[Rfam]
RNA: Small nucleolar RNA Z102/R77
Organism: Zingiber officinale
RNA sequence: UUAAAAUAUGAUUUAAAAUUUGGGUUUUCCCGAUUGGUUUGAUGGCUGAUAUGUUGGCUACAAAUGUAUUAGCUCUAUCUGAACUCUUAU
Numbered sequence: 001u002u003a004a005a006a007u008a009u010g011a012u013u014u015a016a017a018a019u020u021u022g023g024g025u026u027u028u029c030c031c032g033a034u035u036g037g038u039u040u041g042a043u044g045g046c047u048g049a050u051a052u053g054u055u056g057g058c059u060a061c062a063a064a065u066g067u068a069u070u071a072g073c074u075c076u077a078u079c080u081g082a083a084c085u086c087u088u089a090u
Base pairs, nucleotide, nucleotide: 002089003088004087041061044059045058046057047056